[Rfam]
Shown here is a 53-nucleotide RNA from Kurthia senegalensis, a member of the family "Streptococcus sRNA SpF59 (ldcC RNA)".
For this family Rfam cites "Control of virulence by small RNAs in Streptococcus pneumoniae" (Mann et al., PLoS Pathog, 2012).
Taxonomically the source falls in Kurthia (Bacteria, Bacillati, Bacillota, Caryophanaceae).
The sequence is in the family's curated seed alignment.
By type it is a small RNA.
RNA sequence: UGACCACUCUUUUAAAGAGUUAAGGCCAUACGGACAGCCGGGUCAACUGCCGC
Numbered sequence: 001u002g003a004c005c006a007c008u009c010u011u012u013u014a015a016a017g018a019g020u021u022a023a024g025g026c027c028a029u030a031c032g033g034a035c036a037g038c039c040g041g042g043u044c045a046a047c048u049g050c051c052g053c
Stems, first nucleotide, its partner, number of pairs: 001045005006020005